[Rfam]
RNA: Small nucleolar RNA SNORA61
Organism: Castor canadensis
RNA sequence: ACCCUCUGGUUCCCUUUCCCAUCAGAUCUGAAUGCUGGUCUUGGUGGUCGUAAAAGGAGGGAAAGUGAUACUGAAGCUGCCUCACAGCAUUGCAGCCUGGCAUAGCAUGUGGGCUAGUUUCAAACAGGA
Numbered sequence: 001a002c003c004c005u006c007u008g009g010u011u012c013c014c015u016u017u018c019c020c021a022u023c024a025g026a027u028c029u030g031a032a033u034g035c036u037g038g039u040c041u042u043g044g045u046g047g048u049c050g051u052a053a054a055a056g057g058a059g060g061g062a063a064a065g066u067g068a069u070a071c072u073g074a075a076g077c078u079g080c081c082u083c084a085c086a087g088c089a090u091u092g093c094a095g096c097c098u099g100g101c102a103u104a105g106c107a108u109g110u111g112g113g114c115u116a117g118u119u120u121c122a123a124a125c126a127g128g129a
Base pairs, nucleotide, nucleotide: 003060004059005058006057007056019047020046021045022044023043025040026039027038028037077117078116079114080113081112082111091107092106093105